[Rfam]
RNA sequence: AAUUUUGAGCAAUCGCGGUUAACUAUUGUUAGCUGAGGAAAGUCCACGCCCGCACGAGCUGCGAUGCUCGUAGUGAUCGUAUUCAGCCCAAUAAGCUGGAGGAUAAUGCAUCAGCAUUAUUAUGGCGGAAAAAGCACUAAGGCCUUUUGGCUAUGUGUUAAUAUCCUGGAAAGUGCCACAGUGACGUAGCAAGUCGGGAAACCGAUUUGGUGGAACGAGGUAAACCCUGCGAGCGGGCAACCCAAACUUGGUAGGGGCGUCUUCGUCUAAGGAAUUGAACUAAAGGCGAGAUCAUUUUUUGAAGAUAGAUGAUUGCUAAAGGCAGUAGCUUGGCUAACUGCUGCUGGAACAGAACGUGGCUUAUAGAA
Numbered sequence: 001a002a003u004u005u006u007g008a009g010c011a012a013u014c015g016c017g018g019u020u021a022a023c024u025a026u027u028g029u030u031a032g033c034u035g036a037g038g039a040a041a042g043u044c045c046a047c048g049c050c051c052g053c054a055c056g057a058g059c060u061g062c063g064a065u066g067c068u069c070g071u072a073g074u075g076a077u078c079g080u081a082u083u084c085a086g087c088c089c090a091a092u093a094a095g096c097u098g099g100a101g102g103a104u105a106a107u108g109c110a111u112c113a114g115c116a117u118u119a120u121u122a123u124g125g126c127g128g129a130a131a132a133a134g135c136a137c138u139a140a141g142g143c144c145u146u147u148u149g150g151c152u153a154u155g156u157g158u159u160a161a162u163a164u165c166c167u168g169g170a171a172a173g174u175g176c177c178a179c180a181g182u183g184a185c186g187u188a189g190c191a192a193g194u195c196g197g198g199a200a201a202c203c204g205a206u207u208u209g210g211u212g213g214a215a216c217g218a219g220g221u222a223a224a225c226c227c228u229g230c231g232a233g234c235g236g237g238c239a240a241c242c243c244a245a246a247c248u249u250g251g252u253a254g255g256g257g258c259g260u261c262u263u264c265g266u267c268u269a270a271g272g273a274a275u276u277g278a279a280c281u282a283a284a285g286g287c288g289a290g291a292u293c294a295u296u297u298u299u300u301g302a303a304g305a306u307a308g309a310u311g312a313u314u315g316c317u318a319a320a321g322g323c324a325g326u327a328g329c330u331u332g333g334c335u336a337a338c339u340g341c342u343g344c345u346g347g348a349a350c351a352g353a354a355c356g357u358g359g360c361u362u363a364u365a366g367a368a
Stems, first nucleotide, its partner, number of pairs: 004368003007364001008317007016035006040362003044359005049237005054071006077232005082100006101123001102121008124227002127166003134158004141152003173225002175221003190209008241256003260291002263289005292302003321345008
RNA: Bacterial RNase P class B
Organism: Lactobacillus psittaci